[Rfam]
RNA: Plastid-ccsA-ndhD-2 3UTR RNA
Organism: Stegnosperma halimifolium
RNA sequence: GUGAGAACCAUUUAAAUCAAGUAGUGUAGUGAUUUAAAUGGUUCUCA
Numbered sequence: 001g002u003g004a005g006a007a008c009c010a011u012u013u014a015a016a017u018c019a020a021g022u023a024g025u026g027u028a029g030u031g032a033u034u035u036a037a038a039u040g041g042u043u044c045u046c047a
Base pairs, nucleotide, nucleotide: 002047003046004045005044006043007042008041009040010039011038012037013036014035015034016033017032018031019030